[Rfam]
A member of the RNA family "Small nucleolar RNA SNORA79" from Dicentrarchus labrax, 145 nucleotides long.
A search with the family's covariance model found it, with a score of 70 bits.
Taxonomically the source falls in Dicentrarchus (Eukaryota, Actinopteri, Euteleosteomorpha, Percomorphaceae).
By type it is an H/ACA-box small nucleolar RNA.
Pairs were carried over by alignment from the consensus structure, which was predicted with RNAalifold.

RNA sequence: UGACGUCGGUUCCUCCUCCUGACUUCAGUCGAUCAGGAGGAUUUUACGAUGUCACAGAGACAUUCGGGUCUUUUUCACCCAGAAAGCUCCAGGCUCCCGCAGCCAAACAUAAACCGGCUUCCUGGUUUUGCAAGAUCCAACAAAC
Numbered sequence: 001u002g003a004c005g006u007c008g009g010u011u012c013c014u015c016c017u018c019c020u021g022a023c024u025u026c027a028g029u030c031g032a033u034c035a036g037g038a039g040g041a042u043u044u045u046a047c048g049a050u051g052u053c054a055c056a057g058a059g060a061c062a063u064u065c066g067g068g069u070c071u072u073u074u075u076c077a078c079c080c081a082g083a084a085a086g087c088u089c090c091a092g093g094c095u096c097c098c099g100c101a102g103c104c105a106a107a108c109a110u111a112a113a114c115c116g117g118c119u120u121c122c123u124g125g126u127u128u129u130g131c132a133a134g135a136u137c138c139a140a141c142a143a144a145c
Stems, first nucleotide, its partner, number of pairs: 001054008014041005020035003067137006079125004084120005

Background: Rfam's curators write: ACA65 (SNORA79) is a member of the H/ACA class of snoRNAs that guide the sites of modification of uridines to pseudouridines.